[Rfam]
RNA sequence: UAACAUAUAAGAAUUUUUGAAGAAAGAAAAGACAGAAAUACCCAAGAUCUUGCUAGAACAAGAUAUUGGGUAUUUCUGUCUU
Numbered sequence: 001u002a003a004c005a006u007a008u009a010a011g012a013a014u015u016u017u018u019g020a021a022g023a024a025a026g027a028a029a030a031g032a033c034a035g036a037a038a039u040a041c042c043c044a045a046g047a048u049c050u051u052g053c054u055a056g057a058a059c060a061a062g063a064u065a066u067u068g069g070g071u072a073u074u075u076c077u078g079u080c081u082u
Base pairs, nucleotide, nucleotide: 029082030081031080032079033078034077035076036075037074038073039072040071041070043068044067045066047064048063049062050061051060
The record is an 82-nucleotide RNA sequence from Aegilops tauschii, which matches "Plastid-psbA-1 3UTR RNA" in Rfam.
The literature on the family includes a 2023 paper in Plant Commun by Richter et al., "Retrograde signaling in plants: A critical review focusing on the GUN pathway and beyond".
Rfam classes the family as a cis-regulatory element.
The source organism's lineage runs through Eukaryota, Petrosaviidae, Poaceae, Pooideae and Aegilops tauschii.
The family's consensus secondary structure was predicted with LocARNA.
A search with the family's covariance model found it, with a score of 57 bits.